[Rfam]
RNA sequence: GUUGCUUCUUAUGGUGAACUCCCUGUAAAUUUCGUUGGGUUGGGGAUGUUCAAGUUUCCGAAGCAUAGAUCAAAUUGCCAGUAUUAAACAGCACAUGCAUACUUUUUGGUUGCACUGUGUUACCUGUCUCCUGGUACAUGU
Numbered sequence: 001g002u003u004g005c006u007u008c009u010u011a012u013g014g015u016g017a018a019c020u021c022c023c024u025g026u027a028a029a030u031u032u033c034g035u036u037g038g039g040u041u042g043g044g045g046a047u048g049u050u051c052a053a054g055u056u057u058c059c060g061a062a063g064c065a066u067a068g069a070u071c072a073a074a075u076u077g078c079c080a081g082u083a084u085u086a087a088a089c090a091g092c093a094c095a096u097g098c099a100u101a102c103u104u105u106u107u108g109g110u111u112g113c114a115c116u117g118u119g120u121u122a123c124c125u126g127u128c129u130c131c132u133g134g135u136a137c138a139u140g141u
Stems, first nucleotide, its partner, number of pairs: 003065006015052005020046005077135005083129001090121003094117002

Background
small nucleolar RNA snoR137: a 141-nucleotide sequence from Prunus armeniaca. The match comes from Rfam's covariance-model search (107 bits). A reference for the family is Chen and Wu (2009), "Mining small RNA sequencing data: a new approach to identify small nucleolar RNAs in Arabidopsis", Nucleic Acids Res. Rfam links the family to the GO terms nucleolus and RNA processing.